RNA sequence: UUAACUCAAACUUGUAUGCAGUUGGAACAGCGCCCCUAGCGGCAAACGUAGUGGCGUUGUUCCAACUGCAUACAAAUUUGAGGUA
Numbered sequence: 001u002u003a004a005c006u007c008a009a010a011c012u013u014g015u016a017u018g019c020a021g022u023u024g025g026a027a028c029a030g031c032g033c034c035c036c037u038a039g040c041g042g043c044a045a046a047c048g049u050a051g052u053g054g055c056g057u058u059g060u061u062c063c064a065a066c067u068g069c070a071u072a073c074a075a076a077u078u079u080g081a082g083g084u085a
Base pairs, nucleotide, nucleotide: 008079009078010077012075013074014073015072016071018069020067021066022065023064024063025062026061027060028059029058034053035051039047

mir-2807 microRNA precursor family: an 85-nucleotide sequence from Bombyx mori. Its family is annotated with miRNA-mediated post-transcriptional gene silencing and RISC complex in the Gene Ontology. The family has 8 seed sequences and 5,120 matches in Rfam 15.1. The literature on the family includes a 2010 paper in BMC Genomics by Liu et al., "MicroRNAs of Bombyx mori identified by Solexa sequencing".